terC RNA: a 60-nucleotide RNA sequence from Mesorhizobium sp. LSHC420B00. NCBI's taxonomy places the organism under Bacteria, Pseudomonadati, Alphaproteobacteria, Phyllobacteriaceae, Mesorhizobium. Rfam classes the family as a cis-regulatory element. The family's consensus secondary structure is taken from published work. The match comes from Rfam's covariance-model search (58 bits).
RNA sequence: CCGCUGGUCCGGGCCCCUCUGGUGAGAGCCUCGGCACUCUUGCGAUGUCGGACCGAUUUU
Numbered sequence: 001c002c003g004c005u006g007g008u009c010c011g012g013g014c015c016c017c018u019c020u021g022g023u024g025a026g027a028g029c030c031u032c033g034g035c036a037c038u039c040u041u042g043c044g045a046u047g048u049c050g051g052a053c054c055g056a057u058u059u060u
Stems, first nucleotide, its partner, number of pairs: 006054007022043007